The record is a 79-nucleotide RNA sequence from Nippostrongylus brasiliensis, which matches "SmY spliceosomal RNA" in Rfam. Rfam classes the family as a spliceosomal small nuclear RNA. Lineage of the source: Eukaryota > Protostomia > Nematoda > Rhabditida > Nippostrongylus. The base pairs follow the family's consensus structure, which is taken from published work. A search with the family's covariance model found it, with a score of 58 bits.
RNA sequence: AUGAAACUUGAUAACACUACAGGGUCUUUUAUAAGACCCAGUGACCAAUUUUUGCAACCCCUUGCUGGAGCAUGGGGUA
Numbered sequence: 001a002u003g004a005a006a007c008u009u010g011a012u013a014a015c016a017c018u019a020c021a022g023g024g025u026c027u028u029u030u031a032u033a034a035g036a037c038c039c040a041g042u043g044a045c046c047a048a049u050u051u052u053u054g055c056a057a058c059c060c061c062u063u064g065c066u067g068g069a070g071c072a073u074g075g076g077g078u079a
Stems, first nucleotide, its partner, number of pairs: 022039003026035003057078005063072003